dfrA-dnaX RNA: a 76-nucleotide RNA sequence. The family's consensus secondary structure is taken from published work. The family's RNA type in Rfam is small RNA. Rfam's curators put it in the seed alignment.
RNA sequence: AUGCCUAAUGAUAAAGCUAUUAAUAUUUCACCAUGGUUACACUAGUUUAGUUAUCAAAAGGAAACUAUGGUAUAAU
Numbered sequence: 001a002u003g004c005c006u007a008a009u010g011a012u013a014a015a016g017c018u019a020u021u022a023a024u025a026u027u028u029c030a031c032c033a034u035g036g037u038u039a040c041a042c043u044a045g046u047u048u049a050g051u052u053a054u055c056a057a058a059a060g061g062a063a064a065c066u067a068u069g070g071u072a073u074a075a076u
Stems, first nucleotide, its partner, number of pairs: 030071008